Shown here is a 96-nucleotide RNA from Methanomassiliicoccales archaeon RumEn M1, a member of the family "tRNA". Transfer RNA (tRNA) molecules are approximately 80 nucleotides in length. Taxonomically the source falls in Methanomassiliicoccales (Archaea, Methanobacteriati, Thermoplasmatota, Thermoplasmata).
RNA sequence: GGGCCCGUAGCUUAGUCUGGUGGAGCGUCAGGCUCAUAGGGACCUCCUAGGUUCUGAGACACCCGAUGGUCGCCGGUUCAAAUCCGGUCGGGCCCA
Numbered sequence: 001g002g003g004c005c006c007g008u009a010g011c012u013u014a015g016u017c018u019g020g021u022g023g024a025g026c027g028u029c030a031g032g033c034u035c036a037u038a039g040g041g042a043c044c045u046c047c048u049a050g051g052u053u054c055u056g057a058g059a060c061a062c063c064c065g066a067u068g069g070u071c072g073c074c075g076g077u078u079c080a081a082a083u084c085c086g087g088u089c090g091g092g093c094c095c096a
Stems, first nucleotide, its partner, number of pairs: 001095007010026004028066002031063002072088005